This 73-nucleotide RNA sequence from Jaculus jaculus belongs to the Rfam family "mir-1905 microRNA precursor family". The family's consensus secondary structure was predicted with RNAalifold. The family has 5 seed sequences and 850 matches in Rfam 15.1.

RNA sequence: GAGUCUGUUGCUGGAUGCGCUUGAUAGUGGCGCCCUUGGGUCCCACCACGAGCCCCACCACACGGUAAGGCAC
Numbered sequence: 001g002a003g004u005c006u007g008u009u010g011c012u013g014g015a016u017g018c019g020c021u022u023g024a025u026a027g028u029g030g031c032g033c034c035c036u037u038g039g040g041u042c043c044c045a046c047c048a049c050g051a052g053c054c055c056c057a058c059c060a061c062a063c064g065g066u067a068a069g070g071c072a073c
Stems, first nucleotide, its partner, number of pairs: 004069001006067005012060003017055001019053003023049001025048001027046002030043001032041003